[Rfam]
RNA sequence: GGAAUUUCGCCAGAGCCUACCUCCUCCCAGGUUCUGACGGAUACGGCCGGCAUCCACCUCCUCCCGGGUGCCGGCCGACAAAUCAGCACCCGCCGAACCUCCUCCCUCGGCGGGUGCUGUCC
Numbered sequence: 001g002g003a004a005u006u007u008c009g010c011c012a013g014a015g016c017c018u019a020c021c022u023c024c025u026c027c028c029a030g031g032u033u034c035u036g037a038c039g040g041a042u043a044c045g046g047c048c049g050g051c052a053u054c055c056a057c058c059u060c061c062u063c064c065c066g067g068g069u070g071c072c073g074g075c076c077g078a079c080a081a082a083u084c085a086g087c088a089c090c091c092g093c094c095g096a097a098c099c100u101c102c103u104c105c106c107u108c109g110g111c112g113g114g115u116g117c118u119g120u121c122c
Base pairs, nucleotide, nucleotide: 007040008039009038011036012035013034014033015032016031017030045076046075047074048073049072050071051070052069053068054067086117087116088115089114090113091112092111093110094109095108096107